[Rfam]
RNA sequence: CGAGUGGUACAUGCAAUCGCUGCUAGCUCUAGAAGCUAGGAGAGGAAAGUCGGAGCUCCAUAGGGCGAUGGUGCUGGUUAACGGCCAGUCAAGGUGACUUGAAGGAUAGUGCAACAGAGAUAUACCGCCAGAAGACUUUUAGUCUGAGUUCACUUAGGUGACUGGUAAGGAUGGAAAGGCGAGGUAAGAGCUCACCAGCAUGGUGGUGACAUCAUGGCUAUGUAAACCCCACCUGGAGCAAGACCGAGAUGUAGCAUAUGGGUGGCCCGUCCCGCUACGUGGUGUGUCGCUUGAGCUUACUGGUAACAGUAAGCCUAGAUAGAUGAUUGCUUAAUACAGAACUCCGCUUACGGACUAUCUCGCAUC
Dot-bracket structure: ((((..(..(..((((((.((.((((((.....)))))).))....[[[.[[[[[((((....[[....(((((((((.....)))))(((((....)))).)((...(((((...........(((((((..(........................)..)))))..)).......((.(((.......))).)).((((((((....))))))).)..)))..)))))))).))))...(((.....((((((....((((...]])))).))))))......)))......((((((((....))))))))..........))))))...........]]]]]]]]...)..)..))))....
RNA: Bacterial RNase P class A
Organism: Clostridium disporicum